[Rfam]
RNA sequence: GGAUUGAUGAUGGCACACUCACAUGCAUUCCCUGGACAAUCUGAACAAAAUGAGUGAGAAAUUGAUACCAUCUCCUCAUUGAAAUGAGGUCU
Numbered sequence: 001g002g003a004u005u006g007a008u009g010a011u012g013g014c015a016c017a018c019u020c021a022c023a024u025g026c027a028u029u030c031c032c033u034g035g036a037c038a039a040u041c042u043g044a045a046c047a048a049a050a051u052g053a054g055u056g057a058g059a060a061a062u063u064g065a066u067a068c069c070a071u072c073u074c075c076u077c078a079u080u081g082a083a084a085u086g087a088g089g090u091c092u
Stems, first nucleotide, its partner, number of pairs: 001092005026056005033047002
Rfam assigns this 92-nucleotide sequence from Cervus hanglu to the family "Small nucleolar RNA SNORD116". The family's consensus secondary structure was predicted with PFOLD. Rfam classes the family as a C/D-box small nucleolar RNA. Taxonomically the source falls in Cervus hanglu (Eukaryota, Chordata, Craniata, Artiodactyla). A reference for the family is Cavaille et al. (2000), "Identification of brain-specific and imprinted small nucleolar RNA genes exhibiting an unusual genomic organization", Proc Natl Acad Sci U S A.